[Rfam]
RNA sequence: UGCAGCCCUGUCAAAUUCAAUCCCUACCUCCUCCGUAGCAAGGAUUGGCCACCCAGCUGCCACAGCCACUUCUGUGGUUCGUGAGCCGCACAUCCCCUUCCUCGUGAGACACUGGGGGCUAAAAUCGGGCCACGGACAUGU
Numbered sequence: 001u002g003c004a005g006c007c008c009u010g011u012c013a014a015a016u017u018c019a020a021u022c023c024c025u026a027c028c029u030c031c032u033c034c035g036u037a038g039c040a041a042g043g044a045u046u047g048g049c050c051a052c053c054c055a056g057c058u059g060c061c062a063c064a065g066c067c068a069c070u071u072c073u074g075u076g077g078u079u080c081g082u083g084a085g086c087c088g089c090a091c092a093u094c095c096c097c098u099u100c101c102u103c104g105u106g107a108g109a110c111a112c113u114g115g116g117g118g119c120u121a122a123a124a125u126c127g128g129g130c131c132a133c134g135g136a137c138a139u140g141u
Base pairs, nucleotide, nucleotide: 002060003059004058005057018047019046020045021044022043023042025040027038074133075132076131077130078129079128086118087117089116091114
The family of this 141-nucleotide RNA sequence from Nestor notabilis is "Small nucleolar RNA SNORA5". Rfam describes the family as follows. ACA5 is a member of the H/ACA class of snoRNA that guide the sites of modification of uridines to pseudouridines. The organism belongs to Nestor, within Eukaryota. The match comes from Rfam's covariance-model search (55 bits). Its family is annotated with nucleolus and RNA processing in the Gene Ontology.